This 128-nucleotide RNA sequence from Vibrio sp. qd031 belongs to the Rfam family "Qrr RNA". Rfam classes the family as a small RNA. Rfam 15.1 lists 148 matches to the family in 70 species. A reference for the family is Tu and Bassler (2007), "Multiple small RNAs act additively to integrate sensory information and control quorum sensing in Vibrio harveyi", Genes Dev. About the family: This family represents a set of small RNAs (the Qrr RNAs) that are thought to be involved in the regulation of quorum sensing in Vibrio species. It is believed that these RNAs, guided by a protein, Hfq, can mediate the destabilisation of the quorum-sensing master regulators LuxR/HapR mRNAs. A search with the family's covariance model found it, with a score of 60 bits.

Nucleotides: 128
Base pairs, nucleotide, nucleotide: 001029002028003027004026005025006024007023008022009021010020011019045085046084047083048082051069052068053067054066055065056064057063097118098117099116100115101114102113103112104111
Number, partner (000 for none) and nucleotide at each position: 001029u002028g003027a004026c005025u006024u007023c008022g009021a010020u011019a012000a013000u014000c015000u016000u017000a018000u019011u020010g021009u022008u023007g024006a025005a026004g027003u028002c029001a030000c031000c032000u033000a034000g035000c036000c037000a038000a039000c040000u041000g042000a043000c044000g045085u046084u047083g048082u049000u050000a051069g052068u053067g054066a055065a056064u057063g058000u059000a060000c061000a062000u063057u064056g065055u066054u067053c068052a069051c070000a071000c072000a073000a074000u075000a076000g077000g078000u079000c080000g081000a082048a083047u084046a085045g086000a087000c088000u089000u090000a091000a092000u093000c094000g095000a096000a097118c098117c099116a100115a101114u102113c103112g104111c105000a106000a107000a108000u109000u110000a111104g112103c113102g114101g115100u116099u117098g118097g119000u120000u121000u122000u123000u124000u125000u126000u127000u128000g